[Rfam]
RNA: SAM riboswitch aptamer (S box leader)
Organism: Bacillus sp. FJAT-50079
RNA sequence: UUCUUAUCCAGAGAGGUGGAGGGACUGGCCCUGUGAUACCUCAGCAACAGACUUUUCUAAGUACUGUGCUAAUUCCAGAAGCGUAAUGCUUGAAGAUAAGAA
Numbered sequence: 001u002u003c004u005u006a007u008c009c010a011g012a013g014a015g016g017u018g019g020a021g022g023g024a025c026u027g028g029c030c031c032u033g034u035g036a037u038a039c040c041u042c043a044g045c046a047a048c049a050g051a052c053u054u055u056u057c058u059a060a061g062u063a064c065u066g067u068g069c070u071a072a073u074u075c076c077a078g079a080a081g082c083g084u085a086a087u088g089c090u091u092g093a094a095g096a097u098a099a100g101a102a
Base pairs, nucleotide, nucleotide: 001102002101003100004099005098006097007096008095013042014041015040016039017038021031022030023029025078026077027076028075043070044069045068046067048066049065051062052061053060054059074094079091080090081089082088083087